[Rfam]
RNA sequence: UGAUGUUAAGGGCAAAAUCAUCGAAAGGUGAUGACGCAAAGCUGCGGGUCUAAGAAAAGUUGCAGUCGUUCUGCGCUUUUUAUGACAGCCGGGCCGCCGCA
Numbered sequence: 001u002g003a004u005g006u007u008a009a010g011g012g013c014a015a016a017a018u019c020a021u022c023g024a025a026a027g028g029u030g031a032u033g034a035c036g037c038a039a040a041g042c043u044g045c046g047g048g049u050c051u052a053a054g055a056a057a058a059g060u061u062g063c064a065g066u067c068g069u070u071c072u073g074c075g076c077u078u079u080u081u082a083u084g085a086c087a088g089c090c091g092g093g094c095c096g097c098c099g100c101a
Base pairs, nucleotide, nucleotide: 012037013036017032018031019030020029021028022027041094042093043092045091046090047089048086049085050084055080056079057078058077059076060075
RNA: c-di-GMP-I riboswitch aptamer